[Rfam]
RNA sequence: CUCGUUAUUCAGCUAACGGUAGCCUAAGGAUAGUGCGUCACUGGUAACGGUGAGGUAUGAAGCAUCCCUACAAUGUAGUCAUGUCAUCGACAUCGGGUGUCCCCGCGAGGGUAAACCUGGAUUCUACCAGCAACAGGUGGAUGAGACG
Numbered sequence: 001c002u003c004g005u006u007a008u009u010c011a012g013c014u015a016a017c018g019g020u021a022g023c024c025u026a027a028g029g030a031u032a033g034u035g036c037g038u039c040a041c042u043g044g045u046a047a048c049g050g051u052g053a054g055g056u057a058u059g060a061a062g063c064a065u066c067c068c069u070a071c072a073a074u075g076u077a078g079u080c081a082u083g084u085c086a087u088c089g090a091c092a093u094c095g096g097g098u099g100u101c102c103c104c105g106c107g108a109g110g111g112u113a114a115a116c117c118u119g120g121a122u123u124c125u126a127c128c129a130g131c132a133a134c135a136g137g138u139g140g141a142u143g144a145g146a147c148g
Base pairs, nucleotide, nucleotide: 002019003018004017005016006015007014028067029066030065031064033058034057035056036055038053039052040051041050042049043048081093082092083091084090085089094119095118096117097116103110104109123141124140125139126138127137128136
RNA: Group II catalytic intron D1-D4-7
Organism: Klebsiella pneumoniae